Nucleotides: 136
Stems, first nucleotide, its partner, number of pairs: 009128003013124002018119002023114003029109004035104007
Number, partner (000 for none) and nucleotide at each position: 001000u002000u003000u004000u005000a006000a007000a008000c009128c010127c011126g012000a013124u014123a015000g016000a017000a018119g019118u020000g021000g022000a023114a024113a025112u026000a027000c028000u029109u030108u031107u032106u033000g034000u035104u036103g037102c038101u039100u040099c041098u042000c043000a044000c045000a046000a047000a048000a049000a050000a051000g052000a053000u054000u055000g056000c057000c058000a059000c060000g061000u062000c063000g064000u065000u066000c067000u068000u069000a070000g071000u072000a073000g074000c075000a076000a077000u078000g079000a080000c081000g082000g083000a084000c085000a086000u087000g088000g089000g090000u091000g092000g093000a094000u095000g096000a097000c098041a099040g100039a101038a102037g103036c104035a105000a106032a107031a108030a109029a110000a111000g112025a113024u114023u115000g116000a117000a118019a119018c120000g121000g122000a123014u124013a125000g126011c127010g128009g129000g130000g131000a132000c133000u134000a135000a136000u

Rfam assigns this 136-nucleotide RNA sequence from Pedobacter changchengzhani to the family "Flavo-1 RNA". Rfam classes the family as a small RNA.